[Rfam]
RNA sequence: UUCGCUGCUGUGAUGAUGCAAAUUUGUGGACUAGAGUUUCCGAUCUGGGUCUCAAGCCCCAGAAGUUGAAGACUAACCCUUGGCUGUCUGAGCAUAAAU
Numbered sequence: 001u002u003c004g005c006u007g008c009u010g011u012g013a014u015g016a017u018g019c020a021a022a023u024u025u026g027u028g029g030a031c032u033a034g035a036g037u038u039u040c041c042g043a044u045c046u047g048g049g050u051c052u053c054a055a056g057c058c059c060c061a062g063a064a065g066u067u068g069a070a071g072a073c074u075a076a077c078c079c080u081u082g083g084c085u086g087u088c089u090g091a092g093c094a095u096a097a098a099u
Base pairs, nucleotide, nucleotide: 002098006094007093008092037071038070039069040068044064045062046061047060048059049058
Small nucleolar RNA Z157/R69/R10: a 99-nucleotide RNA from Olea europaea. It scores 70 bits against the family's covariance model. Clan: SNORD52 clan. The source organism's lineage runs through Eukaryota, Mesangiospermae, eudicotyledons, lamiids and Olea europaea. The literature on the family includes a 2003 paper in Nucleic Acids Res by Chen et al., "The high diversity of snoRNAs in plants: identification and comparative study of 120 snoRNA genes from Oryza sativa".